[Rfam]
RNA sequence: ACAGGUUUGAGCCCAUAGCAGAAGUACUCACAGUGCGGCCUGUCAGAUUCCAACAAAUCUGUGAAUUCUGCU
Numbered sequence: 001a002c003a004g005g006u007u008u009g010a011g012c013c014c015a016u017a018g019c020a021g022a023a024g025u026a027c028u029c030a031c032a033g034u035g036c037g038g039c040c041u042g043u044c045a046g047a048u049u050c051c052a053a054c055a056a057a058u059c060u061g062u063g064a065a066u067u068c069u070g071c072u
Stems, first nucleotide, its partner, number of pairs: 009040001013038002017072007024036003044061006
The record is a 72-nucleotide RNA sequence from Alligator mississippiensis, which matches "Mammalian CPEB3 ribozyme" in Rfam. Pairs were carried over by alignment from the consensus structure, which is taken from published work. Its family is annotated with RNA nuclease activity in the Gene Ontology. The source organism's lineage runs through Eukaryota, Chordata, Craniata, Tetrapoda and Alligator.